Small nucleolar RNA snoR31/Z110/Z27: a 101-nucleotide sequence from Protea cynaroides. Its family is annotated with RNA processing and nucleolus in the Gene Ontology. About the family: This family contains several related snoRNAs including R31, Z27 and Z110.
RNA sequence: UUGAUCAAGUGAUGAAAUCAGAAAUUAAAUCUUAAGACACCUUCUUACAUAGUUGUACCUAGAGUUGUGGAUGACAAAGACAUUUCUAUUCUAAUGAUAAA
Numbered sequence: 001u002u003g004a005u006c007a008a009g010u011g012a013u014g015a016a017a018u019c020a021g022a023a024a025u026u027a028a029a030u031c032u033u034a035a036g037a038c039a040c041c042u043u044c045u046u047a048c049a050u051a052g053u054u055g056u057a058c059c060u061a062g063a064g065u066u067g068u069g070g071a072u073g074a075c076a077a078a079g080a081c082a083u084u085u086c087u088a089u090u091c092u093a094a095u096g097a098u099a100a101a
Base pairs, nucleotide, nucleotide: 001101002100004098005097006096007095045051
Dot-bracket structure: ((.((((.....................................(.....)...........................................)))).))

Rfam 15.1 lists 571 matches to the family in 198 species. Lineage of the source: Eukaryota > Streptophytina > Euphyllophyta > Magnoliopsida > Protea.